[Rfam]
RNA sequence: AGUACCUUUAACUCAGUCCAGAGAGGCUGGGAAGGUAGCGUGAUACGUGCCGUCGUCGAAGAAGCUUGUCCGCGAGCUCGGAGUCCUUGCCUCCGCGCGGGGAAUAGGCGCGUUCGCGCGCCUGCCCUCGCGGGAUCGGGAUCCGCCCGCUCGCUCUUCUUCAAGACGGCACAUGCUUCUUUCCCUCUCCUUGCUGAGCGUUCAGCAGGGAGAUUUUUUU
Dot-bracket structure: ..(((((((...((((((......))))))))))))).....................(((((((.(((.....................................................................................................))).)))))))....((((((((((((....)))))))))))).......
Numbered sequence: 001a002g003u004a005c006c007u008u009u010a011a012c013u014c015a016g017u018c019c020a021g022a023g024a025g026g027c028u029g030g031g032a033a034g035g036u037a038g039c040g041u042g043a044u045a046c047g048u049g050c051c052g053u054c055g056u057c058g059a060a061g062a063a064g065c066u067u068g069u070c071c072g073c074g075a076g077c078u079c080g081g082a083g084u085c086c087u088u089g090c091c092u093c094c095g096c097g098c099g100g101g102g103a104a105u106a107g108g109c110g111c112g113u114u115c116g117c118g119c120g121c122c123u124g125c126c127c128u129c130g131c132g133g134g135a136u137c138g139g140g141a142u143c144c145g146c147c148c149g150c151u152c153g154c155u156c157u158u159c160u161u162c163a164a165g166a167c168g169g170c171a172c173a174u175g176c177u178u179c180u181u182u183c184c185c186u187c188u189c190c191u192u193g194c195u196g197a198g199c200g201u202u203c204a205g206c207a208g209g210g211a212g213a214u215u216u217u218u219u220u
Stems, first nucleotide, its partner, number of pairs: 003037007013030006059181007067173003186213012
This 220-nucleotide sequence from Paenibacillus albicereus belongs to the Rfam family "PyrR binding site". Pairs were carried over by alignment from the consensus structure, which is taken from published work. The organism belongs to Paenibacillus, within Bacteria. Rfam describes the family as follows. This family represents the PyrR binding site and terminator structure. This RNA structure is found upstream of a variety of genes involved in pyrimidine biosynthesis and transport. On this family, see Bonner et al., Nucleic Acids Res 2001: "Molecular recognition of pyr mRNA by the Bacillus subtilis attenuation regulatory protein PyrR". By type it is a cis-regulatory element.